[Rfam]
Record summary:
Shown here is a 176-nucleotide RNA sequence from Thalassomonas sp. M1454, a member of the family "Lysine riboswitch aptamer". The family's consensus secondary structure is taken from published work.
RNA sequence: AGGGCCAGAAGAGGAGCAUUAACCAGGUAGUUAUUUUGAGGAGAUCAAACUCCAAUGACAAAUAACGAGGGGGAUUAAUGCCGAGGUACAAGUUAGUUUGGUCUUGCUUGUAUCGGACGAUUGGGUUGAAUCCCUUCGGCUGCCACAUGCUUAUAUAGUGGAGCGCUUCUGGUCUU
Numbered sequence: 001a002g003g004g005c006c007a008g009a010a011g012a013g014g015a016g017c018a019u020u021a022a023c024c025a026g027g028u029a030g031u032u033a034u035u036u037u038g039a040g041g042a043g044a045u046c047a048a049a050c051u052c053c054a055a056u057g058a059c060a061a062a063u064a065a066c067g068a069g070g071g072g073g074a075u076u077a078a079u080g081c082c083g084a085g086g087u088a089c090a091a092g093u094u095a096g097u098u099u100g101g102u103c104u105u106g107c108u109u110g111u112a113u114c115g116g117a118c119g120a121u122u123g124g125g126u127u128g129a130a131u132c133c134c135u136u137c138g139g140c141u142g143c144c145a146c147a148u149g150c151u152u153a154u155a156u157a158g159u160g161g162a163g164c165g166c167u168u169c170u171g172g173u174c175u176u
Stems, first nucleotide, its partner, number of pairs: 006171006016081007024073001030066007085114009095104002115141002118138003123134003143161004
The organism belongs to Thalassomonas, within Bacteria. Its family is annotated with lysine biosynthetic process in the Gene Ontology.